[Rfam]
RNA sequence: ACAACAUUCGGACCGUCGGUCUACAGAGCAAUCACACCCGCGUGAAGGAAGAUCUUCCUUUCGUCGU
Number, nucleotide and partner (000 for none) at each position: 001a000002c000003a000004a064005c063006a000007u000008u000009c000010g058011g057012a056013c000014c000015g053016u052017c051018g000019g000020u049021c048022u047023a000024c000025a000026g043027a000028g041029c040030a000031a000032u000033c000034a000035c000036a000037c000038c000039c000040g029041c028042g000043u026044g000045a000046a000047g022048g021049a020050a000051g017052a016053u015054c000055u000056u012057c011058c010059u000060u000061u000062c000063g005064u004065c000066g000067u000